[Rfam]
RNA sequence: GGCUGGCUGGGGUUCCUGGGGAUGAGAUUUGUUUUUUAGUCACAAAUCACAUUGCCAGGGAUUACCAACCGUCC
Dot-bracket structure: ((.(((...((((((((((.((((.(((((.............))))).)))).))))))))..))..))).))